[Rfam]
This 135-nucleotide sequence from Callorhinus ursinus belongs to the Rfam family "Small nucleolar RNA SNORA1". Rfam classes the family as an H/ACA-box small nucleolar RNA.
RNA sequence: AGCCUCAUUCUCCAGGAGAACGGGCCCUGCUGGUUGUUGUGUCCAGAAAUUCUUAAUGUGGAUAAACUGAAACACAGACCGUGCCUCCAUCUCAGUAAAUGUAUUGCAAUAGUGACGAUGAGACCUGUAAUUUUU
Numbered sequence: 001a002g003c004c005u006c007a008u009u010c011u012c013c014a015g016g017a018g019a020a021c022g023g024g025c026c027c028u029g030c031u032g033g034u035u036g037u038u039g040u041g042u043c044c045a046g047a048a049a050u051u052c053u054u055a056a057u058g059u060g061g062a063u064a065a066a067c068u069g070a071a072a073c074a075c076a077g078a079c080c081g082u083g084c085c086u087c088c089a090u091c092u093c094a095g096u097a098a099a100u101g102u103a104u105u106g107c108a109a110u111a112g113u114g115a116c117g118a119u120g121a122g123a124c125c126u127g128u129a130a131u132u133u134u135u
Base pairs, nucleotide, nucleotide: 003061004060006058007057008056022044023043024042025041027039074128075127076126077125088114089113090112
Gene Ontology terms of the family: nucleolus and RNA processing. Lineage of the source: Eukaryota > Gnathostomata > Carnivora > Caniformia > Callorhinus. The match comes from Rfam's covariance-model search (94 bits).